[Rfam]
RNA: Y RNA
RNA sequence: GGCUGGUCCGAAGGUAGUGGGUUAUCAGAAAAACUAUUAACGUUAGUGUCACUAAAGUUGGUAAACAACCCCCCCCCACUGCUGGAUUUGACUGGCUUUCU
Numbered sequence: 001g002g003c004u005g006g007u008c009c010g011a012a013g014g015u016a017g018u019g020g021g022u023u024a025u026c027a028g029a030a031a032a033a034c035u036a037u038u039a040a041c042g043u044u045a046g047u048g049u050c051a052c053u054a055a056a057g058u059u060g061g062u063a064a065a066c067a068a069c070c071c072c073c074c075c076c077c078a079c080u081g082c083u084g085g086a087u088u089u090g091a092c093u094g095g096c097u098u099u100c101u
Stems, first nucleotide, its partner, number of pairs: 001097008010089002015084001016080006035063003039059002